[Rfam]
RNA sequence: UGGUUCCAAGGAAGGGAUGAUGUUCCAAUUGAAACUCAAGAAAAGGAUUCUGAGCCUCAGAGCUUUGAAGGAGCCACUCGUUCCCUGACCUUCCUUGAAGUAGU
Numbered sequence: 001u002g003g004u005u006c007c008a009a010g011g012a013a014g015g016g017a018u019g020a021u022g023u024u025c026c027a028a029u030u031g032a033a034a035c036u037c038a039a040g041a042a043a044a045g046g047a048u049u050c051u052g053a054g055c056c057u058c059a060g061a062g063c064u065u066u067g068a069a070g071g072a073g074c075c076a077c078u079c080g081u082u083c084c085c086u087g088a089c090c091u092u093c094c095u096u097g098a099a100g101u102a103g104u
Base pairs, nucleotide, nucleotide: 009095010094011093012092013091014090015089
A member of the RNA family "Small nucleolar RNA SNORD124" from Bos taurus, 104 nucleotides long. NCBI's taxonomy places the organism under Eukaryota, Craniata, Theria, Pecora, Bos. Gene Ontology terms of the family: RNA processing and nucleolus. Rfam's curators put it in the seed alignment. The family has 18 seed sequences and 191 matches in Rfam 15.1. Rfam classes the family as a C/D-box small nucleolar RNA.